Shown here is a 114-nucleotide RNA from Silurus meridionalis, a member of the family "Potassium channel RNA editing signal". The family's consensus secondary structure is taken from published work. The match comes from Rfam's covariance-model search (94 bits). The family's RNA type in Rfam is cis-regulatory element.
RNA sequence: GUGGGAUAUGGAGACAUGCACCCUGUGACCAUCGGGGGAAAAAUCGUCGGGUCGUUGUGCGCCAUCGCAGGCGUCUUGACCAUCGCCCUCCCUGUCCCGGUUAUAGUCUCGAAC
Numbered sequence: 001g002u003g004g005g006a007u008a009u010g011g012a013g014a015c016a017u018g019c020a021c022c023c024u025g026u027g028a029c030c031a032u033c034g035g036g037g038g039a040a041a042a043a044u045c046g047u048c049g050g051g052u053c054g055u056u057g058u059g060c061g062c063c064a065u066c067g068c069a070g071g072c073g074u075c076u077u078g079a080c081c082a083u084c085g086c087c088c089u090c091c092c093u094g095u096c097c098c099g100g101u102u103a104u105a106g107u108c109u110c111g112a113a114c
Stems, first nucleotide, its partner, number of pairs: 001114002005110001008107002011104001013102003018097001020095002037077002040074001049063002

This family represents a group of sequences related to the human potassium channel Kv1.1 hairpin element which directs the efficient modification of an adenosine to inosine by an adenosine deaminase acting on RNA (ADAR).